[Rfam]
RNA sequence: GGCACGGAUCCGCUUGGGCAGGAGCGGGGGACCCAUUUCCGGACGCGGCGACGGUCGUGUCCUUGGGGUGAAGCCGGUCAGCCGGACGCGACGCCAUCGGCGGAGCGCGAGGAGACGACCGGCCGGGCAUUCCCAGCCCGAACCCGACAGCUCACCCCGCAGGCGCAGGGAAGGAUCGA
Numbered sequence: 001g002g003c004a005c006g007g008a009u010c011c012g013c014u015u016g017g018g019c020a021g022g023a024g025c026g027g028g029g030g031a032c033c034c035a036u037u038u039c040c041g042g043a044c045g046c047g048g049c050g051a052c053g054g055u056c057g058u059g060u061c062c063u064u065g066g067g068g069u070g071a072a073g074c075c076g077g078u079c080a081g082c083c084g085g086a087c088g089c090g091a092c093g094c095c096a097u098c099g100g101c102g103g104a105g106c107g108c109g110a111g112g113a114g115a116c117g118a119c120c121g122g123c124c125g126g127g128c129a130u131u132c133c134c135a136g137c138c139c140g141a142a143c144c145c146g147a148c149a150g151c152u153c154a155c156c157c158c159g160c161a162g163g164c165g166c167a168g169g170g171a172a173g174g175a176u177c178g179a
Stems, first nucleotide, its partner, number of pairs: 002164002005162001009023003024160006034065002066145003074122006125139004
RNA: c-di-AMP riboswitch aptamer (ydaO/yuaA leader)
Organism: Pseudofrankia asymbiotica